[Rfam]
RNA: Small nucleolar RNA snR57
Organism: Saccharomyces cerevisiae
RNA sequence: GGUUAAGCGUGAUUAUAAAAAAUGAUUUAAAUAUUUUUCUGAGGAAGUAUAUGCAGGACAUAUUGUGAAUUAGGAAUUCUUCGUUUAUGAUCUGGCC
Numbered sequence: 001g002g003u004u005a006a007g008c009g010u011g012a013u014u015a016u017a018a019a020a021a022a023u024g025a026u027u028u029a030a031a032u033a034u035u036u037u038u039c040u041g042a043g044g045a046a047g048u049a050u051a052u053g054c055a056g057g058a059c060a061u062a063u064u065g066u067g068a069a070u071u072a073g074g075a076a077u078u079c080u081u082c083g084u085u086u087a088u089g090a091u092c093u094g095g096c097c
Stems, first nucleotide, its partner, number of pairs: 001097004